[Rfam]
Rfam assigns this 129-nucleotide RNA sequence from Adiantum capillus-veneris to the family "U11 spliceosomal RNA". For this family Rfam cites "Additional low-abundance human small nuclear ribonucleoproteins: U11, U12, etc" (Montzka and Steitz, Proc Natl Acad Sci U S A, 1988). It scores 54 bits against the family's covariance model.
RNA sequence: UAAAAGGAUCGGUUGGCCAAAUGUGCCACGCGCACCCUCGACGGUGCACGCCUUAUGGAGAUCUAGACAUACGGCCGACACAAUUUUUGGAACGCAAGAGAGGUUUGUCUCGCUUAGCCGAUCCUAUCA
Numbered sequence: 001u002a003a004a005a006g007g008a009u010c011g012g013u014u015g016g017c018c019a020a021a022u023g024u025g026c027c028a029c030g031c032g033c034a035c036c037c038u039c040g041a042c043g044g045u046g047c048a049c050g051c052c053u054u055a056u057g058g059a060g061a062u063c064u065a066g067a068c069a070u071a072c073g074g075c076c077g078a079c080a081c082a083a084u085u086u087u088u089g090g091a092a093c094g095c096a097a098g099a100g101a102g103g104u105u106u107g108u109c110u111c112g113c114u115u116a117g118c119c120g121a122u123c124c125u126a127u128c129a
Base pairs, nucleotide, nucleotide: 009078010077011076012075014028015027016026017025029050030049032047033046034045035044036043051074052073054071055070056069057068097127099125100124102123103122104121105120109117110116